[Rfam]
RNA: Small nucleolar RNA snoR99
Nucleotides: 102
Base pairs, nucleotide, nucleotide: 036096037095038094040092041091052082053081055079056078057077058076059075
Number, partner (000 for none) and nucleotide at each position: 001000g002000g003000g004000u005000u006000u007000a008000g009000g010000g011000a012000u013000g014000a015000a016000c017000a018000g019000g020000u021000c022000c023000c024000a025000c026000a027000a028000a029000u030000u031000g032000a033000u034000c035000u036096u037095u038094c039000u040092c041091c042000c043000u044000u045000c046000a047000c048000u049000u050000c051000g052082g053081u054000a055079a056078g057077c058076u059075a060000u061000u062000u063000u064000c065000u066000g067000u068000u069000u070000g071000u072000g073000u074000c075059u076058g077057g078056c079055u080000g081053a082052u083000c084000a085000u086000u087000g088000u089000u090000g091041g092040g093000u094038g095037g096036g097000a098000u099000a100000g101000a102000u